[Rfam]
RNA sequence: UGCACCCACUACUGUAAAUCGCUAUGGAUAAGAGCAUCUGCUAAAUGACUAAAG
Numbered sequence: 001u002g003c004a005c006c007c008a009c010u011a012c013u014g015u016a017a018a019u020c021g022c023u024a025u026g027g028a029u030a031a032g033a034g035c036a037u038c039u040g041c042u043a044a045a046u047g048a049c050u051a052a053a054g
Stems, first nucleotide, its partner, number of pairs: 013043001014041003021035003025031001